[Rfam]
RNA sequence: GCACUGGUUUAGCUCAGUGGUUACUUCGAACACAUUUCUCCUGUAGAAAUAGCUGCUCUCUAUCCCUCACCGGGAUCGAACCACGGGCGCUGUCCAGUGUGUUU
Numbered sequence: 001g002c003a004c005u006g007g008u009u010u011a012g013c014u015c016a017g018u019g020g021u022u023a024c025u026u027c028g029a030a031c032a033c034a035u036u037u038c039u040c041c042u043g044u045a046g047a048a049a050u051a052g053c054u055g056c057u058c059u060c061u062a063u064c065c066c067u068c069a070c071c072g073g074g075a076u077c078g079a080a081c082c083a084c085g086g087g088c089g090c091u092g093u094c095c096a097g098u099g100u101g102u103u104u
Stems, first nucleotide, its partner, number of pairs: 002099006012088004017084004025080005
Rfam assigns this 104-nucleotide RNA sequence from Labrus bergylta to the family "Vault RNA". The source organism's lineage runs through Eukaryota, Vertebrata, Neoteleostei, Percomorphaceae and Labrus. The match comes from Rfam's covariance-model search (66 bits). Rfam's curators write: This family of RNAs are found as part of the enigmatic vault ribonucleoprotein complex. The complex consists of a major vault protein (MVP), two minor vault proteins (VPARP and TEP1), and several small untranslated RNA molecules. It has been suggested that the vault complex is involved in drug resistance. On this family, see Stadler et al., Mol Biol Evol 2009: "Evolution of Vault RNAs". The family has 73 seed sequences and 2,873 matches in Rfam 15.1.